[Rfam]
RNA sequence: CCGGUCGUUCCGUCGACCGUAGCCUACCGAUACAUGCAUCGUUGGUAACGAUGAUGUGUGAAGCUAUCGGGACAACGUGGUCGGCCGAUUCGGGCCCAUCGUCGUCCGUGAGGAGGACGCUAUACCUGCGAGCGCUAAUGCGGGUAGGCUG
Numbered sequence: 001c002c003g004g005u006c007g008u009u010c011c012g013u014c015g016a017c018c019g020u021a022g023c024c025u026a027c028c029g030a031u032a033c034a035u036g037c038a039u040c041g042u043u044g045g046u047a048a049c050g051a052u053g054a055u056g057u058g059u060g061a062a063g064c065u066a067u068c069g070g071g072a073c074a075a076c077g078u079g080g081u082c083g084g085c086c087g088a089u090u091c092g093g094g095c096c097c098a099u100c101g102u103c104g105u106c107c108g109u110g111a112g113g114a115g116g117a118c119g120c121u122a123u124a125c126c127u128g129c130g131a132g133c134g135c136u137a138a139u140g141c142g143g144g145u146a147g148g149c150u151g
Stems, first nucleotide, its partner, number of pairs: 002019006028069005033060012083096004099119001106113002125144006